[Rfam]
RNA sequence: UAUUUUUCAGGGACAGUGUUUCCAAAAAAUU
Numbered sequence: 001u002a003u004u005u006u007u008c009a010g011g012g013a014c015a016g017u018g019u020u021u022c023c024a025a026a027a028a029a030u031u
Stems, first nucleotide, its partner, number of pairs: 002030006010023004014018001
Dot-bracket structure: .((((((..(((((...).)))).)))))).
RNA: Iron response element II
Organism: Alligator mississippiensis